[Rfam]
RNA sequence: GAUGAUGAUAAAAAAGAAUCUCAGAUAGAGGAAGAAAGAAGACUUAUGUAUGUAGCGGUUACAAGAGCGAAGAAUAAUGUUUGUAUAAGUUCUCCUAAA
Numbered sequence: 001g002a003u004g005a006u007g008a009u010a011a012a013a014a015a016g017a018a019u020c021u022c023a024g025a026u027a028g029a030g031g032a033a034g035a036a037a038g039a040a041g042a043c044u045u046a047u048g049u050a051u052g053u054a055g056c057g058g059u060u061a062c063a064a065g066a067g068c069g070a071a072g073a074a075u076a077a078u079g080u081u082u083g084u085a086u087a088a089g090u091u092c093u094c095c096u097a098a099a
Stems, first nucleotide, its partner, number of pairs: 004096001007095001008093001010091001022052002029045003055090002060085004066081004

A member of the RNA family "Clostridioides difficile sRNA included into helicase gene" from Peptacetobacter hiranonis, 99 nucleotides long.
On this family, see Soutourina et al., PLoS Genet 2013: "Genome-wide identification of regulatory RNAs in the human pathogen Clostridium difficile".
This element was identified by RNA deep sequencing of Clostridioides difficile 630 where it is located within gene CD0749 (putative DNA helicase, UvrD/REP type) in the same direction as the gene. A strong transcription start site for this RNA was experimentally confirmed, in the 3' region of gene CD0749. The 3' end of the sRNA has not been confirmed and its length was arbitrarily set to 100nt. For inclusion criteria: Only sequences from order Clostridiales were included, mostly because the starting sequence belonged to this order and the large majority of sequences found by the different RFAM search iterations belonged to this order as well. Associated e-values did not exceed 1e-09. As the original RNA is part of a coding sequence (CDS), it is possible that homologies were detected due to selection pressure for the CDS rather than for a sRNA. R-scape identified only two significantly covarying pairs present in the structure (4-100 and 7-97). Thus evidence for structure is weak.